[Rfam]
RNA sequence: AUAUAUUUCAUACAGGUUAUGUCUAUCGUCACUCACAUAUGCACAUACAGGCUUGUGUUGAAUAUGGUC
Numbered sequence: 001a002u003a004u005a006u007u008u009c010a011u012a013c014a015g016g017u018u019a020u021g022u023c024u025a026u027c028g029u030c031a032c033u034c035a036c037a038u039a040u041g042c043a044c045a046u047a048c049a050g051g052c053u054u055g056u057g058u059u060g061a062a063u064a065u066g067g068u069c
Base pairs, nucleotide, nucleotide: 002066003065004064005063006062007061008060010058011057012056013055014054015053016052017051018047019046020045021044022043023041024039025038026037028036029035
Dot-bracket structure: .(((((((.(((((((((((((((((.((.....))))).).)))))...)))))))).)))))))...
This 69-nucleotide RNA from Arabidopsis thaliana belongs to the Rfam family "TeloSII non coding RNA 45". By type it is a small RNA. The sequence is in the family's curated seed alignment. Located downstream of the TeloSII elements. These elements have been shown to coordinate the expression of protein-coding gene related to ribosome biogenesis throughout the cell cycle in Arabidopsis. The organism belongs to Arabidopsis, within Eukaryota. On this family, see Qu et al., BMC Genomics 2015: "Promoter-based identification of novel non-coding RNAs reveals the presence of dicistronic snoRNA-miRNA genes in Arabidopsis thaliana".